RNA sequence: GUGCAAUUUCAGGGAAGGUGAAACUCCUUACUGGCGGUAGCGCAACGGGCCCGUGCCCGCAUGCGGAGCCCGCAACCCGCGCAAGCGGUGGAUCUGGUGCGAGUCCAGGGCCAACGGUUAUAGUCCGGAUGAAAGAAAUGAGCU
Number, nucleotide and partner (000 for none) at each position: 001g000002u000003g000004c000005a000006a139007u138008u137009u136010c135011a000012g000013g000014g000015a000016a028017g027018g026019u000020g000021a000022a000023a000024c000025u000026c018027c017028u016029u000030a124031c123032u113033g112034g073035c072036g071037g070038u000039a000040g000041c000042g000043c000044a000045a000046c000047g000048g000049g000050c000051c000052c000053g000054u000055g000056c000057c000058c000059g000060c000061a000062u000063g000064c000065g000066g000067a000068g111069c110070c037071c036072g035073c034074a000075a000076c000077c088078c087079g000080c000081g000082c000083a000084a000085g000086c000087g078088g077089u000090g000091g000092a000093u109094c108095u107096g106097g105098u000099g000100c000101g000102a000103g000104u000105c097106c096107a095108g094109g093110g069111c068112c033113a032114a000115c127116g126117g125118u000119u000120a000121u000122a000123g031124u030125c117126c116127g115128g000129a000130u000131g000132a000133a000134a000135g010136a009137a008138a007139u006140g000141a000142g000143c000144u000
Shown here is a 144-nucleotide sequence from Bifidobacterium animalis, a member of the family "FMN riboswitch aptamer (RFN element)". The RFN element is a highly conserved domain that is found frequently in the 5'-untranslated regions of prokaryotic mRNAs that encode for flavin mononucleotide (FMN) biosynthesis and transport proteins. This element is a metabolite-dependent riboswitch that directly binds FMN in the absence of proteins. In Bacillus subtilis, the riboswitch most likely controls gene expression by causing premature transcription termination within the 5' untranslated region of the ribDEAHT operon and precluding access to the ribosome-binding site of ypaA mRNA.The FMN riboswitch structure, reported in present an FMN-bound six-stem junction, adopts a butterfly-like scaffold, stapled together by opposingly directed but nearly identically folded peripheral domains.